[Rfam]
RNA: transfer-messenger RNA
RNA sequence: GGGGGCGACCUGGUUUCGACGGGGGUUGCGAAGCAGAUGAGGGCAUACCGGGAUUUCAGUCACCCCGUAAAACGCUGAAUUUAUAUAGUCGCAAACGACGAAACUUACGCUCUGGCAGCCUAACGGCCGGCCAGACACUACAACGGUUCGCAGAUGGGCCGGGGGCGUCAAAACCCUGUAGUGUCACUCUACAUCUGCUAGUGCUGUUCCGGGUUACUUGGUUCAGUGCGAAAUAAUAGGUAACUCGCCAAAGUCCAGCCUGUCCGUCGGCGUGGCGGAGGUUAAAUCCAAAUGACACGACUAAGUAUGUAGAACUCACUGUAGAGGACUUUCGGACGCGGGUUCGAUUCCCGCCGCCUCCACCA
Numbered sequence: 001g002g003g004g005g006c007g008a009c010c011u012g013g014u015u016u017c018g019a020c021g022g023g024g025g026u027u028g029c030g031a032a033g034c035a036g037a038u039g040a041g042g043g044c045a046u047a048c049c050g051g052g053a054u055u056u057c058a059g060u061c062a063c064c065c066c067g068u069a070a071a072a073c074g075c076u077g078a079a080u081u082u083a084u085a086u087a088g089u090c091g092c093a094a095a096c097g098a099c100g101a102a103a104c105u106u107a108c109g110c111u112c113u114g115g116c117a118g119c120c121u122a123a124c125g126g127c128c129g130g131c132c133a134g135a136c137a138c139u140a141c142a143a144c145g146g147u148u149c150g151c152a153g154a155u156g157g158g159c160c161g162g163g164g165g166c167g168u169c170a171a172a173a174c175c176c177u178g179u180a181g182u183g184u185c186a187c188u189c190u191a192c193a194u195c196u197g198c199u200a201g202u203g204c205u206g207u208u209c210c211g212g213g214u215u216a217c218u219u220g221g222u223u224c225a226g227u228g229c230g231a232a233a234u235a236a237u238a239g240g241u242a243a244c245u246c247g248c249c250a251a252a253g254u255c256c257a258g259c260c261u262g263u264c265c266g267u268c269g270g271c272g273u274g275g276c277g278g279a280g281g282u283u284a285a286a287u288c289c290a291a292a293u294g295a296c297a298c299g300a301c302u303a304a305g306u307a308u309g310u311a312g313a314a315c316u317c318a319c320u321g322u323a324g325a326g327g328a329c330u331u332u333c334g335g336a337c338g339c340g341g342g343u344u345c346g347a348u349u350c351c352c353g354c355c356g357c358c359u360c361c362a363c364c365a
Stems, first nucleotide, its partner, number of pairs: 001361007020334008033322004039317003044309005049067004055079006111135006118128001136183006144161004150198007201229006209221001212245006247282003253276003258271003262301003266296003338354005